[Rfam]
Shown here is a 95-nucleotide sequence from Rosa chinensis, a member of the family "Small nucleolar RNA Z43". It scores 82 bits against the family's covariance model. NCBI's taxonomy places the organism under Eukaryota, Magnoliopsida, Mesangiospermae, Gunneridae, Rosa. Pairs were carried over by alignment from the consensus structure, which was predicted with PFOLD.
RNA sequence: GGACAAUGAUGAUUUGUGUUAGGUCUCGUUCGUCGUAAUGUCUCUUCUGGGACUUGCCGACUAUCGUGAUAUAUCACCACCCAUAGUCUGAGUCC
Numbered sequence: 001g002g003a004c005a006a007u008g009a010u011g012a013u014u015u016g017u018g019u020u021a022g023g024u025c026u027c028g029u030u031c032g033u034c035g036u037a038a039u040g041u042c043u044c045u046u047c048u049g050g051g052a053c054u055u056g057c058c059g060a061c062u063a064u065c066g067u068g069a070u071a072u073a074u075c076a077c078c079a080c081c082c083a084u085a086g087u088c089u090g091a092g093u094c095c
Stems, first nucleotide, its partner, number of pairs: 001095004040055001042050001